MIR5269 microRNA precursor family: a 79-nucleotide sequence from Medicago truncatula. It scores 71 bits against the family's covariance model. The family has 2 seed sequences and 389 matches in Rfam 15.1.
RNA sequence: UUGGUUUAAAUCAUUGUGGGUCUACACUUUGAAAAUUGAACAAACACAAAUUAGUGGGACAUACAUUGAUUUCACCCAA
Dot-bracket structure: ((((.(.((((((.((((...(((.(.((((...............)))).)..)))....)))).)))))).).))))